[Rfam]
RNA sequence: GUAUACAUAAGUGUAAAAGUAUGUCUGAGAAGUACAUAAAGAAUACUUCUCAGAAGUACAUAAAAAGUAGACUGAAAGUAUAC
Numbered sequence: 001g002u003a004u005a006c007a008u009a010a011g012u013g014u015a016a017a018a019g020u021a022u023g024u025c026u027g028a029g030a031a032g033u034a035c036a037u038a039a040a041g042a043a044u045a046c047u048u049c050u051c052a053g054a055a056g057u058a059c060a061u062a063a064a065a066a067g068u069a070g071a072c073u074g075a076a077a078g079u080a081u082a083c
Stems, first nucleotide, its partner, number of pairs: 001083006010073003020062005

This 83-nucleotide RNA from Anabarilius grahami belongs to the Rfam family "GAIT element". The base pairs follow the family's consensus structure, which is taken from published work. It scores 38 bits against the family's covariance model. On this family, see Sampath et al., Mol Cell Biol 2003: "Transcript-selective translational silencing by gamma interferon is directed by a novel structural element in the ceruloplasmin mRNA 3' untranslated region". It is annotated as a cis-regulatory element. This family represents a cis-acting element in the 3'-UTR of the ceruloplasmin (Cp) gene called gamma interferon inhibitor of translation (GAIT). The GAIT element is involved in selective translational silencing of the Cp transcript. Ceruloplasmin (Cp) is a multifunctional, copper-containing glycoprotein produced by the liver and secreted into the plasma. As an acute-phase protein, its plasma concentration can double during multiple inflammatory conditions. Plasma Cp has been reported to be an independent risk factor for cardiovascular disease, including atherosclerosis, carotid restenosis after endarterectomy, and myocardial infarction. Translational silencing of Cp, and possibly other transcripts, mediated by the GAIT element may contribute to the resolution of the local inflammatory response following cytokine activation of macrophages.